Background
The record is a 164-nucleotide RNA from Escherichia albertii, which matches "Bacterial antisense RNA HPnc0260" in Rfam. The family's consensus secondary structure was predicted with CMfinder. On this family, see Sharma et al., Nature 2010: "The primary transcriptome of the major human pathogen Helicobacter pylori".
RNA sequence: UGUAAUAAAGUUGCCAUUGCUAUUUUCCUUCUGAUAACACAUACAGAAACAGUGUAAAUCUUUUAACGCGUUGAAUACAGAAGAUAAAUAGAGGAAAAAGAAGAGGAGACCAGACUAAGAUAAUCUGGUGCGUCCGAGUGGACUCGAACCACCGACCCCCACCA
Numbered sequence: 001u002g003u004a005a006u007a008a009a010g011u012u013g014c015c016a017u018u019g020c021u022a023u024u025u026u027c028c029u030u031c032u033g034a035u036a037a038c039a040c041a042u043a044c045a046g047a048a049a050c051a052g053u054g055u056a057a058a059u060c061u062u063u064u065a066a067c068g069c070g071u072u073g074a075a076u077a078c079a080g081a082a083g084a085u086a087a088a089u090a091g092a093g094g095a096a097a098a099a100g101a102a103g104a105g106g107a108g109a110c111c112a113g114a115c116u117a118a119g120a121u122a123a124u125c126u127g128g129u130g131c132g133u134c135c136g137a138g139u140g141g142a143c144u145c146g147a148a149c150c151a152c153c154g155a156c157c158c159c160c161a162c163c164a
Stems, first nucleotide, its partner, number of pairs: 024049003030043001032041002071086001126161003130157001135154002138152004